RNA sequence: CGUCUGCGCACGCUGCAGCCGCCGCCUGGACCGGGGACCCACCGCAGUUCUGGGGUGAAGCACGGCCGCACGCAGGUGUGGCCGAGCCGGGCGAGUUCCCCGCCCGAACCCGUCAGCUAACUCGGUAGGCGGUUGAGGAGAACAA
Numbered sequence: 001c002g003u004c005u006g007c008g009c010a011c012g013c014u015g016c017a018g019c020c021g022c023c024g025c026c027u028g029g030a031c032c033g034g035g036g037a038c039c040c041a042c043c044g045c046a047g048u049u050c051u052g053g054g055g056u057g058a059a060g061c062a063c064g065g066c067c068g069c070a071c072g073c074a075g076g077u078g079u080g081g082c083c084g085a086g087c088c089g090g091g092c093g094a095g096u097u098c099c100c101c102g103c104c105c106g107a108a109c110c111c112g113u114c115a116g117c118u119a120a121c122u123c124g125g126u127a128g129g130c131g132g133u134u135g136a137g138g139a140g141a142a143c144a145a
Base pairs, nucleotide, nucleotide: 011131012130013129014128019029020028021027030126031125032124033123034122035121040052041051053111054110055109061086063084064083065082066081067080068079069078070077071076089105090104091103092102
The family of this 145-nucleotide sequence from Modestobacter sp. VKM Ac-2676 is "c-di-AMP riboswitch aptamer (ydaO/yuaA leader)".
A search with the family's covariance model found it, with a score of 61 bits.
Rfam's curators write: This family represents a conserved RNA structure found upstream of the ydaO and yuaA genes in Bacillus subtilis and related genes in other bacteria.
Rfam links the family to the GO terms cyclic-di-AMP binding and regulation of gene expression.